[Rfam]
RNA sequence: UUUGGAAGCUGAAUUGCUGAAUACGUGCAGGUGAAGUGUCUGCCCGUACAAUCAGUCUUCCUAUAGUAAUGUACUGGAGAUCUCUGUCUGGCUCUGCCAAGCAUACACAGAGCCUGAUCGUUCCUCUCCACACACA
Numbered sequence: 001u002u003u004g005g006a007a008g009c010u011g012a013a014u015u016g017c018u019g020a021a022u023a024c025g026u027g028c029a030g031g032u033g034a035a036g037u038g039u040c041u042g043c044c045c046g047u048a049c050a051a052u053c054a055g056u057c058u059u060c061c062u063a064u065a066g067u068a069a070u071g072u073a074c075u076g077g078a079g080a081u082c083u084c085u086g087u088c089u090g091g092c093u094c095u096g097c098c099a100a101g102c103a104u105a106c107a108c109a110g111a112g113c114c115u116g117a118u119c120g121u122u123c124c125u126c127u128c129c130a131c132a133c134a135c136a
Stems, first nucleotide, its partner, number of pairs: 004061003008056005022048004027043002076129005084120001086118003090114007
The family of this 136-nucleotide sequence from Aquarana catesbeiana is "Small Cajal body specific RNA 3". The literature on the family includes a 2002 paper in EMBO J by Darzacq et al., "Cajal body-specific small nuclear RNAs: a novel class of 2'-O-methylation and pseudouridylation guide RNAs". The organism belongs to Aquarana, within Eukaryota. scaRNAs are a specific class of small nuclear RNAs which localise to the Cajal bodies and guide the modification of RNA polymerase II transcribed spliceosomal RNAs U1, U2, U4, U5 and U12. The match comes from Rfam's covariance-model search (72 bits). Its Rfam clan is "SCARNA3 clan". It is annotated as a small Cajal body RNA. The family's consensus secondary structure was predicted with RNAalifold.